[Rfam]
Rfam assigns this 79-nucleotide sequence from Gossypium mustelinum to the family "Small nucleolar RNA R12". Lineage of the source: Eukaryota > Mesangiospermae > Malvales > Malvoideae > Gossypium. It scores 69 bits against the family's covariance model. The family has 9 seed sequences and 992 matches in Rfam 15.1. snoR12 is a C/D box small nucleolar RNA, which acts as a methylation guide for 25S ribosomal RNA in plants. snoR12 has been alternatively named snoZ44 in Arabidopsis and snoZ131 in rice. Gene Ontology terms of the family: nucleolus and RNA processing.

RNA sequence: AAGAGGAUGAUGAAAACAAUCAGACGGAUUCCCAUUGAUUUUUUUUCUAUGAGAACAUUAUCAGCUACUUCUGGCUCUU
Numbered sequence: 001a002a003g004a005g006g007a008u009g010a011u012g013a014a015a016a017c018a019a020u021c022a023g024a025c026g027g028a029u030u031c032c033c034a035u036u037g038a039u040u041u042u043u044u045u046u047c048u049a050u051g052a053g054a055a056c057a058u059u060a061u062c063a064g065c066u067a068c069u070u071c072u073g074g075c076u077c078u079u
Base pairs, nucleotide, nucleotide: 001079002078003077004076005075
The family's RNA type in Rfam is C/D-box small nucleolar RNA. Pairs were carried over by alignment from the consensus structure, which was predicted with PFOLD.